This 64-nucleotide sequence from Aminithiophilus ramosus belongs to the Rfam family "Fluoride riboswitch aptamer (crcB RNA motif)".
[Rfam]
Nucleotides: 064
Base pairs, nucleotide, nucleotide: 010025011024012023013022016055017054018053019052020051021050034044035043036042
Number, partner (000 for none) and nucleotide at each position: 001000g002000a003000g004000a005000a006000g007000a008000a009000g010025g011024g012023g013022g014000a015000u016055g017054g018053a019052g020051u021050c022013c023012c024011c025010c026000u027000u028000g029000g030000a031000a032000c033000g034044c035043c036042c037000u038000u039000g040000a041000c042036g043035g044034g045000a046000u047000g048000a049000u050021g051020a052019c053018u054017c055016c056000u057000g058000c059000c060000g061000c062000u063000c064000c